[Rfam]
RNA sequence: CAAACGGCCCUUUUAAGGGCCACCAAUAAAUAUACACAGAACAUC
Number, nucleotide and partner (000 for none) at each position: 001c000002a000003a000004a000005c000006g021007g020008c019009c018010c017011u016012u000013u000014u000015a000016a011017g010018g009019g008020c007021c006022a000023c000024c000025a000026a000027u000028a000029a000030a000031u000032a000033u000034a000035c000036a000037c000038a000039g000040a000041a000042c000043a000044u000045c000